[Rfam]
RNA sequence: ACCGAGGUCCGGGCCCCUCUGACGGCUGCGUCCGCACCGCCAUGUCGGUCCUCUCAU
Numbered sequence: 001a002c003c004g005a006g007g008u009c010c011g012g013g014c015c016c017c018u019c020u021g022a023c024g025g026c027u028g029c030g031u032c033c034g035c036a037c038c039g040c041c042a043u044g045u046c047g048g049u050c051c052u053c054u055c056a057u
Stems, first nucleotide, its partner, number of pairs: 006051002009048004023039003027036003
RNA: terC RNA
Organism: Aquabacter spiritensis